Annotation:
The record is a 141-nucleotide RNA from Motacilla alba, which matches "U8 small nucleolar RNA" in Rfam.
[Rfam]
RNA sequence: UCGUCAGUGAGGUACAUCCUGACCUGCCCCGCCCCCGCGCGGGCAGCGCGUGAUGAGCGCGUGAGCGUAUGACGCCAGUGAUUACGUCACGCCGGCAGCGCGGGUCGCGCAACAAAGCCCGCGCUGCCGAAGGACUCUGAC
Numbered sequence: 001u002c003g004u005c006a007g008u009g010a011g012g013u014a015c016a017u018c019c020u021g022a023c024c025u026g027c028c029c030c031g032c033c034c035c036c037g038c039g040c041g042g043g044c045a046g047c048g049c050g051u052g053a054u055g056a057g058c059g060c061g062u063g064a065g066c067g068u069a070u071g072a073c074g075c076c077a078g079u080g081a082u083u084a085c086g087u088c089a090c091g092c093c094g095g096c097a098g099c100g101c102g103g104g105u106c107g108c109g110c111a112a113c114a115a116a117g118c119c120c121g122c123g124c125u126g127c128c129g130a131a132g133g134a135c136u137c138u139g140a141c
Base pairs, nucleotide, nucleotide: 024046025045026044028043029042030041031040032039071092074088076086079084096126097125098124099123100122101121102120103119104118

The base pairs follow the family's consensus structure, which is taken from published work. NCBI's taxonomy places the organism under Eukaryota, Bilateria, Deuterostomia, Theropoda, Motacilla. Rfam classes the family as a C/D-box small nucleolar RNA. A reference for the family is Peculis (1997), "The sequence of the 5' end of the U8 small nucleolar RNA is critical for 5.8S and 28S rRNA maturation", Mol Cell Biol.